[Rfam]
RNA sequence: CCCAUUGCAUAUGCUGACUGGACGGCCCAUAUAGUUUGGGCUGGCUUGCCAGAUAUGACGAUAAACGCGCAUGCAAUAAGCGGACUGGACUCGGGGGCGGUACCCGACGACUCCACCAAUAAGUCCUUUCUUUUCUCCACGGAUUAGAGAGGGCUUUUCAGUGGGGUCGAAAUAGGAUCGACAGACGUCUAAAGAUGUUAGCUUUCGUUCGUGUGAGCACCGAUAAAUGCUCGUAUAUUAUAAUUGCAAAUGACAAUUAUUCUGAGGAUUUUGCUCUAGCUGCGUAAGCGGUUCGGGUAAUUCCAACUUUAACUCCUAGGGCGUCAGACCCCUAGGCGGGCUCCGGAGAGUAGCUGGCAACAGAAACUCUCCACU
Numbered sequence: 001c002c003c004a005u006u007g008c009a010u011a012u013g014c015u016g017a018c019u020g021g022a023c024g025g026c027c028c029a030u031a032u033a034g035u036u037u038g039g040g041c042u043g044g045c046u047u048g049c050c051a052g053a054u055a056u057g058a059c060g061a062u063a064a065a066c067g068c069g070c071a072u073g074c075a076a077u078a079a080g081c082g083g084a085c086u087g088g089a090c091u092c093g094g095g096g097g098c099g100g101u102a103c104c105c106g107a108c109g110a111c112u113c114c115a116c117c118a119a120u121a122a123g124u125c126c127u128u129u130c131u132u133u134u135c136u137c138c139a140c141g142g143a144u145u146a147g148a149g150a151g152g153g154c155u156u157u158u159c160a161g162u163g164g165g166g167u168c169g170a171a172a173u174a175g176g177a178u179c180g181a182c183a184g185a186c187g188u189c190u191a192a193a194g195a196u197g198u199u200a201g202c203u204u205u206c207g208u209u210c211g212u213g214u215g216a217g218c219a220c221c222g223a224u225a226a227a228u229g230c231u232c233g234u235a236u237a238u239u240a241u242a243a244u245u246g247c248a249a250a251u252g253a254c255a256a257u258u259a260u261u262c263u264g265a266g267g268a269u270u271u272u273g274c275u276c277u278a279g280c281u282g283c284g285u286a287a288g289c290g291g292u293u294c295g296g297g298u299a300a301u302u303c304c305a306a307c308u309u310u311a312a313c314u315c316c317u318a319g320g321g322c323g324u325c326a327g328a329c330c331c332c333u334a335g336g337c338g339g340g341c342u343c344c345g346g347a348g349a350g351u352a353g354c355u356g357g358c359a360a361c362a363g364a365a366a367c368u369c370u371c372c373a374c375u
Stems, first nucleotide, its partner, number of pairs: 041052004057209005067202002069198004081187002085184003091107005108169009210222002212233002339355004345372006

Source information:
A member of the RNA family "Alphaproteobacteria transfer-messenger RNA" from Litorimonas cladophorae, 375 nucleotides long. The match comes from Rfam's covariance-model search (247 bits). Taxonomically the source falls in Litorimonas (Bacteria, Pseudomonadati, Alphaproteobacteria, Maricaulales). Rfam's curators write: Bacterial tmRNA, also known as 10Sa RNA or SsrA, is named for its dual tRNA and mRNA-like properties. Its role is to liberate the mRNA from a stalled ribosome. To accomplish this part of the tmRNA is used as a reading frame that ends in a translation stop signal. The broken mRNA is replaced in the ribosome by the tmRNA and translation of the tmRNA leads to addition of a proteolysis tag to the incomplete protein enabling recognition by a protease. Recently a number of permuted tmRNA genes have been found encoded in two parts. tmRNAs have been identified in eubacteria and some chloroplasts but are absent from archaeal and eukaryote nuclear genomes. By type it is a non-coding RNA gene.